This 67-nucleotide RNA from Bacillus sp. FJAT-27986 belongs to the Rfam family "Bacillaceae-1 RNA". The family's consensus secondary structure is taken from published work. Rfam 15.1 lists 5,721 matches to the family in 247 species. The organism belongs to Bacillus, within Bacteria.

RNA sequence: CAUCAAGGAACAAAGACUAAAUACGCCACAUCGUGUGGCAACGUCUUUGUGACCAACAUCCUGUUGG
Numbered sequence: 001c002a003u004c005a006a007g008g009a010a011c012a013a014a015g016a017c018u019a020a021a022u023a024c025g026c027c028a029c030a031u032c033g034u035g036u037g038g039c040a041a042c043g044u045c046u047u048u049g050u051g052a053c054c055a056a057c058a059u060c061c062u063g064u065u066g067g
Stems, first nucleotide, its partner, number of pairs: 011049007025039005053067005